[Rfam]
RNA: Small nucleolar RNA SNORD77
RNA sequence: AUUACUAUGAUGGUUGCAUAGUUCAACAGAUUGAAUCUUGAAAGAGAUAUACCAUUUAUCUGAUGAUGU
Numbered sequence: 001a002u003u004a005c006u007a008u009g010a011u012g013g014u015u016g017c018a019u020a021g022u023u024c025a026a027c028a029g030a031u032u033g034a035a036u037c038u039u040g041a042a043a044g045a046g047a048u049a050u051a052c053c054a055u056u057u058a059u060c061u062g063a064u065g066a067u068g069u
Stems, first nucleotide, its partner, number of pairs: 001067002005065001007039001009037003014029003045057004